[Rfam]
RNA: mraW RNA
RNA sequence: UCUGAUCGCGUGGCUCGGACUCCCAGCCGUGAGACGCCCUGGCGCACCUUCCCCGGUGCCAGGUCGCACGGAUGGGGAUCCGGGCCCCGCGCCAGACCGGC
Numbered sequence: 001u002c003u004g005a006u007c008g009c010g011u012g013g014c015u016c017g018g019a020c021u022c023c024c025a026g027c028c029g030u031g032a033g034a035c036g037c038c039c040u041g042g043c044g045c046a047c048c049u050u051c052c053c054c055g056g057u058g059c060c061a062g063g064u065c066g067c068a069c070g071g072a073u074g075g076g077g078a079u080c081c082g083g084g085c086c087c088c089g090c091g092c093c094a095g096a097c098c099g100g101c
Stems, first nucleotide, its partner, number of pairs: 010088001012086005018080002021077005027071005033065002038063008
Dot-bracket structure: .........(.(((((.((.(((((.(((((.((...((((((((..........)))))))))).))))).))))).)).))))).).............